[Rfam]
RNA sequence: CAAGGAGAAAUCCAAAGGGAUCGCAUUGAUCCUCCUUUUGACUCGCACAUACGUACACGCACACACGAUAGAUUCAUCUGGAUCGGUCAGUGCCAUCCCUUUGGAUUCAUCCUU
Number, nucleotide and partner (000 for none) at each position: 001c000002a114003a113004g112005g111006a110007g000008a000009a107010a106011u105012c104013c103014a102015a101016a100017g099018g098019g097020a096021u095022c000023g093024c092025a091026u089027u000028g088029a087030u086031c085032c000033u000034c000035c000036u081037u000038u000039u000040g000041a000042c000043u000044c000045g000046c000047a000048c000049a000050u000051a000052c000053g000054u000055a000056c000057a000058c000059g000060c000061a000062c000063a000064c000065a000066c000067g000068a000069u000070a000071g000072a000073u000074u000075c000076a000077u000078c000079u000080g000081g036082a000083u000084c000085g031086g030087u029088c028089a026090g000091u025092g024093c023094c000095a021096u020097c019098c018099c017100u016101u015102u014103g013104g012105a011106u010107u009108c000109a000110u006111c005112c004113u003114u002
Rfam assigns this 114-nucleotide RNA from Carnegiea gigantea to the family "mir-393 microRNA precursor family".
Lineage of the source: Eukaryota > eudicotyledons > Cactaceae > Cactoideae > Carnegiea.
For this family Rfam cites "Role of microRNAs and other sRNAs of plants in their changing environments" (Kruszka et al., J Plant Physiol, 2012).
The family has 27 seed sequences and 1,052 matches in Rfam 15.1.
The base pairs follow the family's consensus structure.